Rfam assigns this 121-nucleotide RNA from Paenibacillus xerothermodurans to the family "pan motif". The source organism's lineage runs through Bacteria, Bacillati, Bacillota, Paenibacillaceae and Paenibacillus.
[Rfam]
RNA sequence: GAGGCGGUAUCCGUUUAAUGGAGUUGCACUCGUUGCUGUUAAGCUGUCAUUACGUGUAAUCGAAUAUUCACUUGAAAAUAUGUCGGAUUCUGCUCAGAGCCUAACGGACCGAGACAGAAGG
Numbered sequence: 001g002a003g004g005c006g007g008u009a010u011c012c013g014u015u016u017a018a019u020g021g022a023g024u025u026g027c028a029c030u031c032g033u034u035g036c037u038g039u040u041a042a043g044c045u046g047u048c049a050u051u052a053c054g055u056g057u058a059a060u061c062g063a064a065u066a067u068u069c070a071c072u073u074g075a076a077a078a079u080a081u082g083u084c085g086g087a088u089u090c091u092g093c094u095c096a097g098a099g100c101c102u103a104a105c106g107g108a109c110c111g112a113g114a115c116a117g118a119a120g121g
Stems, first nucleotide, its partner, number of pairs: 001031003004027005010022004090117003093113003097109001100107002